[Rfam]
RNA sequence: UCCUGCAUCCCGAUAGUGAUCACAGGCCACCCAUACCCUGGCCAUUGAUAGUGCAGGGAGAGGAAUGCAGAAAGAAGUUUCCCCGUGUUUGGAGGGUCCAGCUGUCCCUGUCCCUUCCCAGCCCUGGAGCUUUCCCACA
Numbered sequence: 001u002c003c004u005g006c007a008u009c010c011c012g013a014u015a016g017u018g019a020u021c022a023c024a025g026g027c028c029a030c031c032c033a034u035a036c037c038c039u040g041g042c043c044a045u046u047g048a049u050a051g052u053g054c055a056g057g058g059a060g061a062g063g064a065a066u067g068c069a070g071a072a073a074g075a076a077g078u079u080u081c082c083c084c085g086u087g088u089u090u091g092g093a094g095g096g097u098c099c100a101g102c103u104g105u106c107c108c109u110g111u112c113c114c115u116u117c118c119c120a121g122c123c124c125u126g127g128a129g130c131u132u133u134c135c136c137a138c139a
Base pairs, nucleotide, nucleotide: 001058002057003056004055005054006053007052008051015046016045017044018043020041021040022039025037026036067136070134071133072132073131074130087122088121089120091118092116093115094114095113096112